RNA sequence: GCUGUAUAAAGAUGUAGCGAACGCAAGACAGUUUCCGCAUCUCCCUUUACGGCGACGAACUCUUAGAAGUCUUGAAAACAAUAUCUGUUUUGUGGCUAUGUGUCGAAGCGGAUUGAUUCAGGAUGGAUUAGGUUAGCCGUAUGACCUUGGUUGAAAAACCUAAAGAUAAUCUUCAAAUUUGACAAGGUUCGCUUUGUUCGCUUUUGGAGUUACGGUUAU
Number, nucleotide and partner (000 for none) at each position: 001g053002c052003u051004g050005u049006a048007u000008a046009a000010a042011g041012a040013u039014g038015u037016a000017g036018c000019g034020a033021a032022c031023g029024c000025a000026a000027g000028a000029c023030a000031g022032u021033u020034u019035c000036c017037g015038c014039a013040u012041c011042u010043c000044c000045c000046u008047u000048u006049a005050c004051g003052g002053c001054g000055a000056c000057g000058a000059a000060c000061u000062c000063u000064u000065a000066g000067a000068a000069g124070u123071c122072u121073u120074g119075a118076a117077a000078a000079c000080a000081a000082u000083a113084u112085c111086u110087g109088u108089u107090u000091u000092g000093u000094g104095g103096c000097u000098a000099u000100g000101u000102g000103u095104c094105g000106a000107a089108g088109c087110g086111g085112a084113u083114u000115g000116a000117u076118u075119c074120a073121g072122g071123a070124u069125g000126g000127a000128u000129u000130a147131g146132g145133u144134u143135a000136g216137c215138c214139g213140u212141a211142u166143g134144a133145c132146c131147u130148u000149g160150g159151u158152u157153g000154a000155a000156a000157a152158a151159c150160c149161u000162a000163a000164a000165g000166a142167u000168a000169a000170u000171c209172u208173u207174c206175a205176a204177a203178u000179u000180u200181g199182a000183c000184a000185a000186g000187g000188u000189u000190c000191g000192c000193u000194u000195u000196g000197u000198u000199c181200g180201c000202u000203u177204u176205u175206g174207g173208a172209g171210u000211u141212a140213c139214g138215g137216u136217u000218a000219u000

Record summary: Shown here is a 219-nucleotide sequence, a member of the family "IS605-orfB-I RNA". The base pairs follow the family's consensus structure, which is taken from published work.